[Rfam]
RNA sequence: AUUUUAUGGUCUGACGCGGAGCGAGAACAAUGGCCAAAACUGUAGUGAACCUACGGUUAUAAAUCAUCAAAUUGCGGGAAACCCCUAAAGGAAUCUUAACCAAGUAAGUAUGGUAACAUAACUUAUGGCACAGGUAAUGACUCGUGGUACGGUAAAAUCAAGAUUUAUCAUUCAAUGGGCAAUCCGCAGCCAAGUGCCAAGUAUAAAAUAUUUGGUAUGCAGUUCAUCGACUAGACGGUGAUUGGUAUUAUUAGUGUUAAUAAUGCUUAAGAUAUAGUCAGGCCCCACCUGAAAAGGUGCA
Numbered sequence: 001a002u003u004u005u006a007u008g009g010u011c012u013g014a015c016g017c018g019g020a021g022c023g024a025g026a027a028c029a030a031u032g033g034c035c036a037a038a039a040c041u042g043u044a045g046u047g048a049a050c051c052u053a054c055g056g057u058u059a060u061a062a063a064u065c066a067u068c069a070a071a072u073u074g075c076g077g078g079a080a081a082c083c084c085c086u087a088a089a090g091g092a093a094u095c096u097u098a099a100c101c102a103a104g105u106a107a108g109u110a111u112g113g114u115a116a117c118a119u120a121a122c123u124u125a126u127g128g129c130a131c132a133g134g135u136a137a138u139g140a141c142u143c144g145u146g147g148u149a150c151g152g153u154a155a156a157a158u159c160a161a162g163a164u165u166u167a168u169c170a171u172u173c174a175a176u177g178g179g180c181a182a183u184c185c186g187c188a189g190c191c192a193a194g195u196g197c198c199a200a201g202u203a204u205a206a207a208a209u210a211u212u213u214g215g216u217a218u219g220c221a222g223u224u225c226a227u228c229g230a231c232u233a234g235a236c237g238g239u240g241a242u243u244g245g246u247a248u249u250a251u252u253a254g255u256g257u258u259a260a261u262a263a264u265g266c267u268u269a270a271g272a273u274a275u276a277g278u279c280a281g282g283c284c285c286c287a288c289c290u291g292a293a294a295a296g297g298u299g300c301a
Stems, first nucleotide, its partner, number of pairs: 001007002019028001062243005068237001073188006083179003189223002194218004205212002227280001229279005245266009286299005

The family of this 301-nucleotide RNA from Bondarzewia mesenterica is "Group I catalytic intron".
Rfam 15.1 lists 5,602 matches to the family in 1,395 species.
The base pairs follow the family's consensus structure, which is taken from published work.
The organism belongs to Bondarzewia, within Eukaryota.
Its family is annotated with Group I intron splicing in the Gene Ontology.